[Rfam]
RNA sequence: CACAAUUGAAUAGGCUCCUCAAGGGCGGUCGGCUCAUCCCCUCACGAAAGGGGGUGAGCUCGGUAUGACGGAAUUUCAGACUCUGACUGUGAUGAUUGCUUUUGGUUCUCUGGUAACAGCGAUCAUCUUCGGCAUGUUGACUGUUCUCCUGUCCAUACUCAACCUGACAAAAAAGAAAUAGACCUCCCUUGAGCUUGGACGGCUAGGAGAAGGUCUAUUUCUAGCUUUACUGAGCCGACACCCUUGAAGGGUAUCUUUUGUGCCAACGGCCGUAGGUGAUAGCAACACCUGCG
Numbered sequence: 001c002a003c004a005a006u007u008g009a010a011u012a013g014g015c016u017c018c019u020c021a022a023g024g025g026c027g028g029u030c031g032g033c034u035c036a037u038c039c040c041c042u043c044a045c046g047a048a049a050g051g052g053g054g055u056g057a058g059c060u061c062g063g064u065a066u067g068a069c070g071g072a073a074u075u076u077c078a079g080a081c082u083c084u085g086a087c088u089g090u091g092a093u094g095a096u097u098g099c100u101u102u103u104g105g106u107u108c109u110c111u112g113g114u115a116a117c118a119g120c121g122a123u124c125a126u127c128u129u130c131g132g133c134a135u136g137u138u139g140a141c142u143g144u145u146c147u148c149c150u151g152u153c154c155a156u157a158c159u160c161a162a163c164c165u166g167a168c169a170a171a172a173a174a175g176a177a178a179u180a181g182a183c184c185u186c187c188c189u190u191g192a193g194c195u196u197g198g199a200c201g202g203c204u205a206g207g208a209g210a211a212g213g214u215c216u217a218u219u220u221c222u223a224g225c226u227u228u229a230c231u232g233a234g235c236c237g238a239c240a241c242c243c244u245u246g247a248a249g250g251g252u253a254u255c256u257u258u259u260g261u262g263c264c265a266a267c268g269g270c271c272g273u274a275g276g277u278g279a280u281a282g283c284a285a286c287a288c289c290u291g292c293g
Stems, first nucleotide, its partner, number of pairs: 001262005008255002011238001013236004018193008027183001029181001034057003038053005067153005073147001081094001104145003203224002240252003271293008280284001
Rfam assigns this 293-nucleotide sequence from Tumebacillus flagellatus to the family "BsrG". Pairs were carried over by alignment from the consensus structure, which was predicted with WAR. bsrE, bsrG and bsrH pair through intermolecular interactions with antisense sRNAs. They form type I toxin/antitoxin system that includes an mRNA encoding for a short, toxic peptide (bsrE, bsrG and bsrH) and an antitoxin that is comprised of an antisense RNA. bsrG encodes a 39-amino-acid toxin, and the 180 nucleotide antisense sRNA called SR4 acts as the antitoxin (they overlap by 123 nucleotides). SR4 interaction with the 3'UTR of bsrG RNA promotes bsrG degradation and inhibits its translation. BsrG interferes with cell envelope biosynthesis, causes membrane invaginations and delocalisation of the cell wall synthesis and initiates autolysis. bsrE RNA encodes 30 amino-acid toxin peptide. The family's RNA type in Rfam is small RNA. Taxonomically the source falls in Tumebacillus (Bacteria, Bacillota, Bacilli, Alicyclobacillaceae). For this family Rfam cites "A multistress responsive type I toxin-antitoxin system: bsrE/SR5 from the B. subtilis chromosome" (Muller et al., RNA Biol, 2016).